The record is a 587-nucleotide part of an RNA from Thioalkalivibrio paradoxus, which matches "Bacterial large subunit ribosomal RNA" in Rfam. The match comes from Rfam's covariance-model search (2936 bits). The family is grouped with related families in Rfam's "LSU clan". The organism belongs to Thioalkalivibrio paradoxus, within Bacteria.

[Rfam]
RNA sequence: CCCGCGGCUAGACGGAAAGACCCCGUGAACCUUUACUACAGCUUCACACUGAACUUUGAAUAUGCUUGUGUAGGAUAGGUGGGAGGCUUUGAAACCGGGACGCCAGUCCCGGUGGAGCCAACCUUGAAAUACCACCCUGGCAUGUUUGAAGUUCUAACCCAGGCCCGUGAUCCGGGUCGGGGACCGUGUGUGGUGGGUAGUUUGACUGGGGCGGUCUCCUCCCAAAGAGUAACGGAGGAGCGCGAAGGUACCCUCAGCGCGGUCGGAAAUCGCGCAACGAGUGCAAAGGCAUAAGGGUGCUUGACUGCGAGACAGACACGUCGAGCAGGUGCGAAAGCAGGUCUUAGUGAUCCGGUGGUUCUGUAUGGAAGGGCCAUCGCUCAACGGAUAAAAGGUACUCCGGGGAUAACAGGCUGAUACUGCCCAAGAGUCCAUAUCGACGGCAGUGUUUGGCACCUCGAUGUCGGCUCAUCACAUCCUGGGGCUGAAGCAGGUCCCAAGGGUAUGGCUGUUCGCCAUUUAAAGUGGUACGCGAGCUGGGUUUAGAACGUCGUGAGACAGUUCGGUCCCUAUCUGCCGUGGGCGUC
Numbered sequence: 001c002c003c004g005c006g007g008c009u010a011g012a013c014g015g016a017a018a019g020a021c022c023c024c025g026u027g028a029a030c031c032u033u034u035a036c037u038a039c040a041g042c043u044u045c046a047c048a049c050u051g052a053a054c055u056u057u058g059a060a061u062a063u064g065c066u067u068g069u070g071u072a073g074g075a076u077a078g079g080u081g082g083g084a085g086g087c088u089u090u091g092a093a094a095c096c097g098g099g100a101c102g103c104c105a106g107u108c109c110c111g112g113u114g115g116a117g118c119c120a121a122c123c124u125u126g127a128a129a130u131a132c133c134a135c136c137c138u139g140g141c142a143u144g145u146u147u148g149a150a151g152u153u154c155u156a157a158c159c160c161a162g163g164c165c166c167g168u169g170a171u172c173c174g175g176g177u178c179g180g181g182g183a184c185c186g187u188g189u190g191u192g193g194u195g196g197g198u199a200g201u202u203u204g205a206c207u208g209g210g211g212c213g214g215u216c217u218c219c220u221c222c223c224a225a226a227g228a229g230u231a232a233c234g235g236a237g238g239a240g241c242g243c244g245a246a247g248g249u250a251c252c253c254u255c256a257g258c259g260c261g262g263u264c265g266g267a268a269a270u271c272g273c274g275c276a277a278c279g280a281g282u283g284c285a286a287a288g289g290c291a292u293a294a295g296g297g298u299g300c301u302u303g304a305c306u307g308c309g310a311g312a313c314a315g316a317c318a319c320g321u322c323g324a325g326c327a328g329g330u331g332c333g334a335a336a337g338c339a340g341g342u343c344u345u346a347g348u349g350a351u352c353c354g355g356u357g358g359u360u361c362u363g364u365a366u367g368g369a370a371g372g373g374c375c376a377u378c379g380c381u382c383a384a385c386g387g388a389u390a391a392a393a394g395g396u397a398c399u400c401c402g403g404g405g406a407u408a409a410c411a412g413g414c415u416g417a418u419a420c421u422g423c424c425c426a427a428g429a430g431u432c433c434a435u436a437u438c439g440a441c442g443g444c445a446g447u448g449u450u451u452g453g454c455a456c457c458u459c460g461a462u463g464u465c466g467g468c469u470c471a472u473c474a475c476a477u478c479c480u481g482g483g484g485c486u487g488a489a490g491c492a493g494g495u496c497c498c499a500a501g502g503g504u505a506u507g508g509c510u511g512u513u514c515g516c517c518a519u520u521u522a523a524a525g526u527g528g529u530a531c532g533c534g535a536g537c538u539g540g541g542u543u544u545a546g547a548a549c550g551u552c553g554u555g556a557g558a559c560a561g562u563u564c565g566g567u568c569c570c571u572a573u574c575u576g577c578c579g580u581g582g583g584c585g586u587c
Stems, first nucleotide, its partner, number of pairs: 001583008010575003014570002022404004027400002029396005035201004042193002045190004051154016068137001078136005085119003094113008158181003162178006204216004217239006240385001242342002248300006254280002257275006281290002305328004311322003330339003353379007361372002413454003417451001418448007428438002465540001466538004470532001471529005478503002481498006505519005546564004550559003